RNA: MAT2A 3'UTR stem loop E
RNA sequence: CCCCCACCCCGGGAGGCCGAGGUGUCCUACAGAAAAACCUCGGGUCCCACCUGCCGGGGUG
Numbered sequence: 001c002c003c004c005c006a007c008c009c010c011g012g013g014a015g016g017c018c019g020a021g022g023u024g025u026c027c028u029a030c031a032g033a034a035a036a037a038c039c040u041c042g043g044g045u046c047c048c049a050c051c052u053g054c055c056g057g058g059g060u061g
Base pairs, nucleotide, nucleotide: 004061006060007059008058009057010056011055012054014052015051016050017043018042019041020040021039022038023037024030025029